[Rfam]
RNA sequence: GUCCCGUCCUCGUGAUCGUCUUCUCAACCUUCACGCAGGCGGGACACGGAGAGGGCCCCCGGAGUGGACGUGACACUCCGGGGGCCCUC
Numbered sequence: 001g002u003c004c005c006g007u008c009c010u011c012g013u014g015a016u017c018g019u020c021u022u023c024u025c026a027a028c029c030u031u032c033a034c035g036c037a038g039g040c041g042g043g044a045c046a047c048g049g050a051g052a053g054g055g056c057c058c059c060c061g062g063a064g065u066g067g068a069c070g071u072g073a074c075a076c077u078c079c080g081g082g083g084g085c086c087c088u089c
Stems, first nucleotide, its partner, number of pairs: 001045008012034004018028002051089016
A member of the RNA family "sodF sRNA" from Streptomyces cacaoi, 89 nucleotides long.
The base pairs follow the family's consensus structure.
Rfam 15.1 lists 336 matches to the family in 317 species.
On this family, see Kim et al., Nucleic Acids Res 2014: "Inverse regulation of Fe- and Ni-containing SOD genes by a Fur family regulator Nur through small RNA processed from 3'UTR of the sodF mRNA".
The organism belongs to Streptomyces, within Bacteria.
By type it is a small RNA.